[Rfam]
RNA sequence: UAACUCCUCAAAGGGUUGUGAAAUGUCGACUAUUAUCUACUCAUAUCACAGCCAUUUUGAUGAGUUUCG
Number, nucleotide and partner (000 for none) at each position: 001u000002a000003a000004c000005u063006c062007c000008u060009c059010a058011a057012a056013g055014g053015g052016u051017u050018g049019u048020g047021a046022a000023a000024u045025g044026u043027c000028g000029a000030c000031u000032a000033u000034u000035a000036u000037c000038u000039a000040c000041u000042c000043a026044u025045a024046u021047c020048a019049c018050a017051g016052c015053c014054a000055u013056u012057u011058u010059g009060a008061u000062g006063a005064g000065u000066u000067u000068c000069g000

This 69-nucleotide sequence from Drosophila simulans belongs to the Rfam family "mir-2 microRNA precursor family".
The base pairs follow the family's consensus structure, which was predicted with PFOLD.